A member of the RNA family "int-alpA RNA", 71 nucleotides long.

RNA sequence: CAACAGGCUAACCCGACGGGGGACAAGUGCAAUUCCAUGAUGCACCUGCCUGUUGUUUUUAUAAAUCAUGG
Number, nucleotide and partner (000 for none) at each position: 001c055002a054003a053004c052005a051006g050007g049008c048009u000010a000011a000012c021013c020014c019015g000016a000017c000018g000019g014020g013021g012022g000023a000024c000025a000026a000027g045028u044029g043030c042031a041032a000033u000034u000035c071036c070037a069038u068039g067040a066041u031042g030043c029044a028045c027046c000047u000048g008049c007050c006051u005052g004053u003054u002055g001056u000057u000058u000059u000060u000061a000062u000063a000064a000065a000066u040067c039068a038069u037070g036071g035
Source information:
The family's consensus secondary structure is taken from published work. From the family's description: Acidobacteria (1 example), Planctomycetes (1 example), Proteobacteria.